[Rfam]
RNA sequence: CAUGAUGAAACUAAAUUAGUUUUGGAUUGUAUAGAGGGUAGUCGCAGUCGCCUCAACUCCGACCCUUGCACAGUUUAUUGCGCAAGAGUAAGGUGAGAAACAACUUUAGUUGGAAACUUUAAUUUUGUUAAGAAAUUAAAGAACUGU
Numbered sequence: 001c002a003u004g005a006u007g008a009a010a011c012u013a014a015a016u017u018a019g020u021u022u023u024g025g026a027u028u029g030u031a032u033a034g035a036g037g038g039u040a041g042u043c044g045c046a047g048u049c050g051c052c053u054c055a056a057c058u059c060c061g062a063c064c065c066u067u068g069c070a071c072a073g074u075u076u077a078u079u080g081c082g083c084a085a086g087a088g089u090a091a092g093g094u095g096a097g098a099a100a101c102a103a104c105u106u107u108a109g110u111u112g113g114a115a116a117c118u119u120u121a122a123u124u125u126u127g128u129u130a131a132g133a134a135a136u137u138a139a140a141g142a143a144c145u146g147u
Stems, first nucleotide, its partner, number of pairs: 006024007036053004044147004057097003062089002065086005071080001101112004117141009
The record is a 147-nucleotide RNA sequence, which matches "IS605-orfB-II RNA" in Rfam. The family's consensus secondary structure is taken from published work.